RNA: Group I catalytic intron
Organism: Clostridium sp. SM-530-WT-3G
RNA sequence: UAAAUGGAAUGAAAUAAGGAGUGCCUUUGCAGAGCAAUCUGUAAAGAAAAUGAGGUGAAUUGCGGGAAAUGCCUUAGAGCCUUGAAUACUAACUUAACAUAGUGAUAUAGUUAGGGGCUUAGAAUAAUUAACUAAGGAGAAGUAAAAACGUCAAGGAUUGGUUAAUCCGCAGCCAAGUGACCUGGAAACAGGUUAAAGGUUCAGAGACUAGAUAAAGUAAUCUAAGUGAAAAAUAGAUAAUCAUAUGAUGAAAUAUCCAAGAGUGCCUCAUAUCCUAAUUAUUUAGGAUAAUGAUAUAGUCCGAUCUUUAUAGAAAUAUAAAG
Numbered sequence: 001u002a003a004a005u006g007g008a009a010u011g012a013a014a015u016a017a018g019g020a021g022u023g024c025c026u027u028u029g030c031a032g033a034g035c036a037a038u039c040u041g042u043a044a045a046g047a048a049a050a051u052g053a054g055g056u057g058a059a060u061u062g063c064g065g066g067a068a069a070u071g072c073c074u075u076a077g078a079g080c081c082u083u084g085a086a087u088a089c090u091a092a093c094u095u096a097a098c099a100u101a102g103u104g105a106u107a108u109a110g111u112u113a114g115g116g117g118c119u120u121a122g123a124a125u126a127a128u129u130a131a132c133u134a135a136g137g138a139g140a141a142g143u144a145a146a147a148a149c150g151u152c153a154a155g156g157a158u159u160g161g162u163u164a165a166u167c168c169g170c171a172g173c174c175a176a177g178u179g180a181c182c183u184g185g186a187a188a189c190a191g192g193u194u195a196a197a198g199g200u201u202c203a204g205a206g207a208c209u210a211g212a213u214a215a216a217g218u219a220a221u222c223u224a225a226g227u228g229a230a231a232a233a234u235a236g237a238u239a240a241u242c243a244u245a246u247g248a249u250g251a252a253a254u255a256u257c258c259a260a261g262a263g264u265g266c267c268u269c270a271u272a273u274c275c276u277a278a279u280u281a282u283u284u285a286g287g288a289u290a291a292u293g294a295u296a297u298a299g300u301c302c303g304a305u306c307u308u309u310a311u312a313g314a315a316a317u318a319u320a321a322a323g
Base pairs, nucleotide, nucleotide: 001020030041031040032039050271051270052269053268054267056265057264061171062170063169064168065167066166071162072161073160172200173199180193181192182191183190184189204302206301207300208299209298210297273288274287275286276285277284278283308321309320310319311318312317